[Rfam]
RNA sequence: UUUUCCGUGUUGAAUCUUGUUAGAACAAGAAAGUUUGCGGAAUACCAAUUUUGCCUGAACGUUCAUCCACGCAGCAAUGGCGUAAGACGUAUUGUACUUUCAGGCAGUUAGCGGGCUGCGGGUUGCAGCCUGACCGGUAAAAUGGAAUCAACUCUUAAGAAACAUUCUAAGGUUAUUCCCACGAUAAUUGCGCUGUAUUUCCGUAUGAAAUACAGGCAACCGACACUUUGCGCCUCUCAGCAAGCGACAACCGUGAGGUUGGCGACUACGCGUUUAGUCACGAGGCCAUCGGUUCACUCCCGGUUAGCGUCACCAUGCCCGCAGCUCUGUCGCCAA
Number, nucleotide and partner (000 for none) at each position: 001u000002u000003u042004u041005c040006c039007g038008u037009g000010u000011u000012g000013a000014a000015u000016c029017u028018u027019g026020u025021u000022a000023g000024a000025a020026c019027a018028a017029g016030a000031a000032a000033g000034u000035u000036u000037g008038c007039g006040g005041a004042a003043u000044a000045c000046c000047a000048a000049u000050u000051u107052u106053g105054c104055c103056u102057g101058a100059a000060c000061g000062u096063u000064c094065a093066u000067c000068c000069a090070c089071g088072c000073a000074g081075c080076a000077a000078u000079g000080g075081c074082g000083u000084a000085a000086g000087a000088c071089g070090u069091a000092u000093u065094g064095u000096a062097c000098u000099u000100u058101c057102a056103g055104g054105c053106a052107g051108u000109u000110a000111g000112c000113g327114g326115g325116c324117u323118g322119c321120g320121g319122g318123u317124u000125g000126c000127a000128g000129c000130c000131u306132g305133a304134c303135c302136g301137g300138u000139a000140a000141a000142a000143u000144g179145g178146a177147a176148u175149c000150a000151a000152c000153u172154c171155u170156u169157a168158a000159g000160a000161a000162a000163c000164a000165u000166u000167c000168u157169a156170a155171g154172g153173u000174u000175a148176u147177u146178c145179c144180c000181a000182c000183g000184a000185u000186a000187a000188u000189u218190g217191c216192g000193c215194u214195g213196u212197a000198u210199u209200u208201c207202c000203g000204u000205a000206u000207g201208a200209a199210a198211u000212a196213c195214a194215g193216g191217c190218a189219a293220c292221c291222g290223a289224c000225a000226c000227u000228u000229u000230g000231c000232g286233c285234c284235u283236c282237u000238c000239a000240g000241c000242a000243a000244g000245c264246g263247a000248c261249a260250a259251c258252c257253g000254u000255g000256a000257g252258g251259u250260u249261g248262g000263c246264g245265a000266c000267u000268a000269c000270g000271c000272g000273u000274u000275u000276a000277g000278u000279c000280a000281c000282g236283a235284g234285g233286c232287c000288a000289u223290c222291g221292g220293u219294u000295c000296a000297c000298u000299c000300c137301c136302g135303g134304u133305u132306a131307g000308c000309g000310u000311c000312a000313c000314c000315a000316u000317g123318c122319c121320c120321g119322c118323a117324g116325c115326u114327c113328u000329g000330u000331c000332g000333c000334c000335a000336a000
Rfam assigns this 336-nucleotide RNA sequence from Cedecea neteri to the family "RNase E 5' UTR element". This family represents a conserved element found in the 5' UTR of RNase E mRNA. RNase E is a key regulatory enzyme in the pathway of mRNA degradation in E. coli that is able to auto-regulate the degradation of its own mRNA in response to changes in RNase E activity. Rfam links the family to the GO term regulation of gene expression. The organism belongs to Cedecea, within Bacteria. The literature on the family includes a 2000 paper in Genes Dev by Diwa et al., "An evolutionarily conserved RNA stem-loop functions as a sensor that directs feedback regulation of RNase E gene expression".